[Rfam]
Overview:
A member of the RNA family "Plant signal recognition particle RNA" from Lactuca sativa, 374 nucleotides long. The literature on the family includes a 2009 paper in RNA Biol by Rosenblad et al., "Kinship in the SRP RNA family". It is annotated as a non-coding RNA gene. Pairs were carried over by alignment from the consensus structure, which is taken from published work. A search with the family's covariance model found it, with a score of 173 bits.
RNA sequence: ACUGGGCCUGGUAACGUUUGCCUGUAACCCAAGUGGGGGUAUCAAAGUGGGUUGGAUUAUGAUUUGGUCGAGUUAGGUUGGGUCUGGUGGUGUGUAAUUUGACUUGCCCGUUCCAAGUCAAUAGUUGUUUCACGUGGCCUGAGCGAAGGCUUUGGGUCUCUUGGAACCUAGAGAAGGGUUCCAAGUCAAUAGUUGUUUCACGUGGCCUGAGCGAAGGCUUUGGGUCUCUUGGAACCUAGAGAAGGGGGCAAUGCGUUAGGCUGGCUUCACAGAGCUGCGACAACUCCUCGCUUCCAGACAGUGGAAGGAUAACAAGUCUUGGCUCUUCAGGCCUAUAUUGCCAACUAGUCUCACUCAAAUGGACUCCCACUUUU
Numbered sequence: 001a002c003u004g005g006g007c008c009u010g011g012u013a014a015c016g017u018u019u020g021c022c023u024g025u026a027a028c029c030c031a032a033g034u035g036g037g038g039g040u041a042u043c044a045a046a047g048u049g050g051g052u053u054g055g056a057u058u059a060u061g062a063u064u065u066g067g068u069c070g071a072g073u074u075a076g077g078u079u080g081g082g083u084c085u086g087g088u089g090g091u092g093u094g095u096a097a098u099u100u101g102a103c104u105u106g107c108c109c110g111u112u113c114c115a116a117g118u119c120a121a122u123a124g125u126u127g128u129u130u131c132a133c134g135u136g137g138c139c140u141g142a143g144c145g146a147a148g149g150c151u152u153u154g155g156g157u158c159u160c161u162u163g164g165a166a167c168c169u170a171g172a173g174a175a176g177g178g179u180u181c182c183a184a185g186u187c188a189a190u191a192g193u194u195g196u197u198u199c200a201c202g203u204g205g206c207c208u209g210a211g212c213g214a215a216g217g218c219u220u221u222g223g224g225u226c227u228c229u230u231g232g233a234a235c236c237u238a239g240a241g242a243a244g245g246g247g248g249c250a251a252u253g254c255g256u257u258a259g260g261c262u263g264g265c266u267u268c269a270c271a272g273a274g275c276u277g278c279g280a281c282a283a284c285u286c287c288u289c290g291c292u293u294c295c296a297g298a299c300a301g302u303g304g305a306a307g308g309a310u311a312a313c314a315a316g317u318c319u320u321g322g323c324u325c326u327u328c329a330g331g332c333c334u335a336u337a338u339u340g341c342c343a344a345c346u347a348g349u350c351u352c353a354c355u356c357a358a359a360u361g362g363a364c365u366c367c368c369a370c371u372u373u374u
Stems, first nucleotide, its partner, number of pairs: 001040003004023004010017001028037003044373008054364001057361001060357002063353001066350002069348001071346004076342003080334008089325002093322001101318006108308002111306005117299003123292003127167006134160001136158006142151003168241002243288005254279003261272003